The family of this 378-nucleotide RNA from Alloprevotella sp. OH1205_COT-284 is "Bacterial RNase P class A". The organism belongs to Alloprevotella, within Bacteria. It scores 231 bits against the family's covariance model. Rfam's curators write: Ribonuclease P (RNase P) is a ubiquitous endoribonuclease, found in archaea, bacteria and eukarya as well as chloroplasts and mitochondria.
RNA sequence: GCAGACGGUCAGUUCGUCGCUCGCACCCUUGUGGUGCGUGAGGAAAGUCCGGGCAACGCAGGGCAAUCCGCUUCUUAACCGGAAGUCGUCCGCGAGGGUGAAUACGUGCAGAAGAAAACAACCGCCUUUUUGUGCUUGCGCGAAAGGGUAAGGGUGAGAAGGUGAGGUAAGAGCUCACCGGCCGAACGGUGACGUUCGGGCCGUGUACAUCGGAUGUUGAAAGUUCAUGUAAACCGGCGCUAUCAAGGCGGCCCGCCUGAGUCUUUCAAGACGUGUCGGAGGGUAGAACGAUAGAAUGUGUCGGCAACGGCGCAUCCAGAUAAAUGACGAACACCUCCACCGGAGGUACAGAACCCGGCUUAUCGACCGUCUGCUCCU
Numbered sequence: 001g002c003a004g005a006c007g008g009u010c011a012g013u014u015c016g017u018c019g020c021u022c023g024c025a026c027c028c029u030u031g032u033g034g035u036g037c038g039u040g041a042g043g044a045a046a047g048u049c050c051g052g053g054c055a056a057c058g059c060a061g062g063g064c065a066a067u068c069c070g071c072u073u074c075u076u077a078a079c080c081g082g083a084a085g086u087c088g089u090c091c092g093c094g095a096g097g098g099u100g101a102a103u104a105c106g107u108g109c110a111g112a113a114g115a116a117a118a119c120a121a122c123c124g125c126c127u128u129u130u131u132g133u134g135c136u137u138g139c140g141c142g143a144a145a146g147g148g149u150a151a152g153g154g155u156g157a158g159a160a161g162g163u164g165a166g167g168u169a170a171g172a173g174c175u176c177a178c179c180g181g182c183c184g185a186a187c188g189g190u191g192a193c194g195u196u197c198g199g200g201c202c203g204u205g206u207a208c209a210u211c212g213g214a215u216g217u218u219g220a221a222a223g224u225u226c227a228u229g230u231a232a233a234c235c236g237g238c239g240c241u242a243u244c245a246a247g248g249c250g251g252c253c254c255g256c257c258u259g260a261g262u263c264u265u266u267c268a269a270g271a272c273g274u275g276u277c278g279g280a281g282g283g284u285a286g287a288a289c290g291a292u293a294g295a296a297u298g299u300g301u302c303g304g305c306a307a308c309g310g311c312g313c314a315u316c317c318a319g320a321u322a323a324a325u326g327a328c329g330a331a332c333a334c335c336u337c338c339a340c341c342g343g344a345g346g347u348a349c350a351g352a353a354c355c356c357g358g359c360u361u362a363u364c365g366a367c368c369g370u371c372u373g374c375u376c377c378u
Stems, first nucleotide, its partner, number of pairs: 001374010011363001012332007020040001022038006045361003049358005054219004062267001066215005071085005086101001088099004102210002106208005122153002124149011161179006181201001182199007223289004234279005261272004296315008